[Rfam]
RNA sequence: CUGCAUGUUAAUCCAAGAGCUGUGGCUCCAUGAAAUAGCCACGGUUCUCCAACAACAUGCAAGAGCAACAGGAAGGUCUUUGACUGCUGGGCCUCUUCUGCCUGUGCUGUCACUCGCCCCUCCUAUAUGU
Numbered sequence: 001c002u003g004c005a006u007g008u009u010a011a012u013c014c015a016a017g018a019g020c021u022g023u024g025g026c027u028c029c030a031u032g033a034a035a036u037a038g039c040c041a042c043g044g045u046u047c048u049c050c051a052a053c054a055a056c057a058u059g060c061a062a063g064a065g066c067a068a069c070a071g072g073a074a075g076g077u078c079u080u081u082g083a084c085u086g087c088u089g090g091g092c093c094u095c096u097u098c099u100g101c102c103u104g105u106g107c108u109g110u111c112a113c114u115c116g117c118c119c120c121u122c123c124u125a126u127a128u129g130u
Base pairs, nucleotide, nucleotide: 013044014043019039020038021037022036023035071123072122073121075119076118086110087109089103090102091101092100
Small nucleolar RNA SNORA44: a 130-nucleotide sequence from Apteryx australis. The family is grouped with related families in Rfam's "SNORA44 clan". A reference for the family is Huttenhofer et al. (2001), "RNomics: an experimental approach that identifies 201 candidates for novel, small, non-messenger RNAs in mouse", EMBO J. ACA44 is a member of the H/ACA class of snoRNA that guide the sites of modification of uridines to pseudouridines. The family's consensus secondary structure was predicted with PFOLD. By type it is an H/ACA-box small nucleolar RNA. Rfam links the family to the GO terms nucleolus and RNA processing.